[Rfam]
RNA sequence: UAAAAAAGAAUAGAUUUGCCGUAGACAGUAGGUGCUUUAAGCUUAAUAUCCUACCGAGGUUUUAGAUAAAUUUUGAUGCUAAAGCUUUUGUAUGUCUAUAUGAUUACAAAAGCUUUUAUAAGUUGCGG
Numbered sequence: 001u002a003a004a005a006a007a008g009a010a011u012a013g014a015u016u017u018g019c020c021g022u023a024g025a026c027a028g029u030a031g032g033u034g035c036u037u038u039a040a041g042c043u044u045a046a047u048a049u050c051c052u053a054c055c056g057a058g059g060u061u062u063u064a065g066a067u068a069a070a071u072u073u074u075g076a077u078g079c080u081a082a083a084g085c086u087u088u089u090g091u092a093u094g095u096c097u098a099u100a101u102g103a104u105u106a107c108a109a110a111a112g113c114u115u116u117u118a119u120a121a122g123u124u125g126c127g128g
Stems, first nucleotide, its partner, number of pairs: 028054005034042003084113009
Rfam assigns this 128-nucleotide RNA from Paraclostridium benzoelyticum to the family "Ribosomal protein L10 leader". It scores 78 bits against the family's covariance model. Pairs were carried over by alignment from the consensus structure, which was predicted with CMfinder. Taxonomically the source falls in Paraclostridium (Bacteria, Bacillati, Bacillota, Peptostreptococcales). It is annotated as a cis-regulatory leader. This family is a putative r-protein leader autoregulatory structure found in B. subtilis and other low-GC Gram-positive bacteria. It is located in the 5' untranslated regions of mRNAs encoding ribosomal proteins L10 and L12 (rplJ-rplL).